[Rfam]
RNA sequence: CUACCGGCGUGGCAACGCACCGGGAAGGGGCGGGAGAAGUCAGCAGAGGUCAUAGUAGUCGGGCGCGUGCCCGGCGAAGGAC
Number, nucleotide and partner (000 for none) at each position: 001c027002u026003a000004c023005c022006g021007g020008c000009g018010u017011g016012g000013c000014a000015a000016c011017g010018c009019a000020c007021c006022g005023g004024g000025a000026a002027g001028g000029g000030g000031c000032g000033g000034g000035a000036g000037a000038a000039g000040u047041c046042a000043g000044c000045a000046g041047a040048g000049g082050u081051c080052a000053u000054a000055g000056u000057a000058g075059u074060c073061g072062g071063g070064c000065g000066c000067g000068u000069g000070c063071c062072c061073g060074g059075c058076g000077a000078a000079g000080g051081a050082c049

Shown here is an 82-nucleotide RNA from Maioricimonas rarisocia, a member of the family "Group II catalytic intron D1-D4-1". The source organism's lineage runs through Bacteria, Planctomycetota, Planctomycetia, Planctomycetaceae and Maioricimonas. Group II introns are found in rRNA, tRNA and mRNA of organelles in fungi, plants and protists, and also in mRNA in bacteria. A search with the family's covariance model found it, with a score of 68 bits.